[Rfam]
RNA sequence: GUGAAGUGAUGAUGAAUCCAUUCUCAGAGCGCUGCUGCAAUGCCCUCCCUGCAGCACGCAGAUUCCUACUGUAGGGUCCCCAUGCUGUGUAGUCUCCAAACACCCGCCAGCCUUUCAUAGUUCUGCUGCAAGCCGCUCGUGUGUCUGGCCAACUCUGUACAGGAGAGGGGCAGAGCCAGCAGGGCGGGAGCCCCUCUUCAUGGGGGCUCUGUCUCAGCUGAGACGAGUGAUGCUGUCUGAUCAC
Numbered sequence: 001g002u003g004a005a006g007u008g009a010u011g012a013u014g015a016a017u018c019c020a021u022u023c024u025c026a027g028a029g030c031g032c033u034g035c036u037g038c039a040a041u042g043c044c045c046u047c048c049c050u051g052c053a054g055c056a057c058g059c060a061g062a063u064u065c066c067u068a069c070u071g072u073a074g075g076g077u078c079c080c081c082a083u084g085c086u087g088u089g090u091a092g093u094c095u096c097c098a099a100a101c102a103c104c105c106g107c108c109a110g111c112c113u114u115u116c117a118u119a120g121u122u123c124u125g126c127u128g129c130a131a132g133c134c135g136c137u138c139g140u141g142u143g144u145c146u147g148g149c150c151a152a153c154u155c156u157g158u159a160c161a162g163g164a165g166a167g168g169g170g171c172a173g174a175g176c177c178a179g180c181a182g183g184g185c186g187g188g189a190g191c192c193c194c195u196c197u198u199c200a201u202g203g204g205g206g207c208u209c210u211g212u213c214u215c216a217g218c219u220g221a222g223a224c225g226a227g228u229g230a231u232g233c234u235g236u237c238u239g240a241u242c243a244c
Base pairs, nucleotide, nucleotide: 010243011242012241013240019229020228021227022226023225025222029218030217034180035179036178037177038175041172042171043170044169045168046166047165049163050162051160053086054085055084056083058081061080064076065075066074067073089153090152092150094148095147102142103141104139108135110134112132113131114130116128117127120124182215183214184213187210188209189208191206192205193204194203195202
Notes: A member of the RNA family "Small nucleolar RNA SNORD17" from Chrysemys picta, 244 nucleotides long. The source organism's lineage runs through Eukaryota, Testudines, Cryptodira, Durocryptodira and Chrysemys picta. It is annotated as a C/D-box small nucleolar RNA. Gene Ontology terms of the family: nucleolus and RNA processing. Rfam's curators write: The snoRNA HBI-43 belongs to the C/D family of snoRNAs, guiding 2'O-ribose methylation at position U3797 of the 28S rRNA. Pseudouridylation in position U3797 is predicted to be guided by the H/ACA snoRNA ACA48.